[Rfam]
RNA: Alphaproteobacteria transfer-messenger RNA
Organism: Terasakiella brassicae
Nucleotides: 369
Base pairs, nucleotide, nucleotide: 040057041056042055043054044053045052046051061201062200063199064198065197072194073193074192075190076189077188078187087178088177089176091175092174093173097113098112099111100110101109114160115159116158117157118156119155120154202217203216204215205214208227209226211225212224213223335350336349337348338347341366342365343364344363345362346361
Number, partner (000 for none) and nucleotide at each position: 001000c002000c003000c004000c005000u006000u007000g008000a009000c010000g011000u012000u013000u014000g015000g016000c017000u018000u019000u020000u021000u022000c023000c024000c025000g026000c027000u028000u029000a030000c031000a032000u033000c034000u035000a036000g037000g038000g039000c040057g041056u042055c043054c044053g045052u046051u047000u048000a049000g050000c051046g052045g053044c054043g055042g056041a057040c058000u059000a060000c061201g062200g063199c064198g065197c066000u067000a068000g069000a070000g071000g072194c073193g074192u075190g076189u077188a078187u079000g080000g081000a082000a083000u084000a085000a086000g087178c088177u089176g090000a091175c092174u093173g094000g095000a096000c097113c098112c099111g100110g101109g102000g103000g104000c105000g106000g107000u108000a109101c110100c111099c112098g113097g114160c115159g116158c117157c118156u119155c120154c121000a122000c123000c124000a125000u126000a127000a128000g129000c130000c131000g132000a133000u134000c135000g136000a137000a138000c139000a140000g141000g142000u143000c144000g145000g146000u147000u148000u149000g150000u151000g152000a153000g154120g155119g156118g157117g158116g159115c160114g161000a162000a163000a164000u165000a166000g167000g168000a169000u170000c171000g172000a173093c174092a175091g176089c177088g178087g179000u180000a181000g182000u183000a184000a185000a186000g187078a188077u189076a190075c191000a192074g193073u194072g195000c196000u197065g198064c199063g200062c201061u202217c203216g204215g205214u206000g207000a208227g209226c210000u211225a212224c213223c214205a215204c216203c217202g218000a219000u220000a221000u222000c223213g224212g225211u226209g227208c228000a229000a230000a231000a232000c233000u234000u235000g236000a237000u238000a239000a240000a241000u242000g243000c244000c245000a246000a247000c248000g249000a250000c251000a252000a253000u254000c255000g256000u257000a258000u259000g260000g261000c262000u263000c264000c265000g266000g267000u268000u269000g270000c271000a272000g273000c274000u275000g276000c277000u278000g279000c280000g281000u282000a283000a284000c285000g286000c287000a288000g289000u290000c291000g292000c293000u294000u295000g296000a297000c298000c299000a300000a301000a302000u303000u304000c305000a306000a307000u308000u309000c310000c311000u312000g313000c314000a315000u316000g317000g318000g319000u320000g321000a322000g323000u324000c325000u326000a327000u328000g329000u330000a331000g332000g333000u334000g335350g336349g337348g338347u339000u340000c341366g342365g343364g344363g345362g346361u347338a348337c349336c350335u351000a352000g353000c354000a355000a356000c357000a358000g359000a360000g361346a362345c363344c364343c365342c366341c367000a368000c369000u